RNA sequence: GCGGGAGGCUCUGACGCGCGGUCCACGCAACGGUCGCCGGGACCGCGCCGAGCCACUGGCGAGACCGACCCGC
Numbered sequence: 001g002c003g004g005g006a007g008g009c010u011c012u013g014a015c016g017c018g019c020g021g022u023c024c025a026c027g028c029a030a031c032g033g034u035c036g037c038c039g040g041g042a043c044c045g046c047g048c049c050g051a052g053c054c055a056c057u058g059g060c061g062a063g064a065c066c067g068a069c070c071c072g073c
Base pairs, nucleotide, nucleotide: 001073002072003071004070005069007054008053009052016048017047018046019045020044021043022042023041032066033065034062035061036060037059038058

Notes:
A member of the RNA family "c-di-GMP-II-GAG riboswitch aptamer", 73 nucleotides long. Pairs were carried over by alignment from the consensus structure, which is taken from published work.